[Rfam]
RNA sequence: UCUUCAUUUCUCGUGCUCUCUCACUGGUCAGAAUGGCGAAAGAGUGUGUGAAAUGAAGAGU
Numbered sequence: 001u002c003u004u005c006a007u008u009u010c011u012c013g014u015g016c017u018c019u020c021u022c023a024c025u026g027g028u029c030a031g032a033a034u035g036g037c038g039a040a041a042g043a044g045u046g047u048g049u050g051a052a053a054u055g056a057a058g059a060g061u
Stems, first nucleotide, its partner, number of pairs: 001059007010050001012048006019041001021039002

The family of this 61-nucleotide RNA from Pristionchus pacificus is "mir-8364 microRNA precursor family". Its family is annotated with miRNA-mediated post-transcriptional gene silencing and RISC complex in the Gene Ontology. Rfam 15.1 lists 3,320 matches to the family in 2 species. The organism belongs to Pristionchus, within Eukaryota.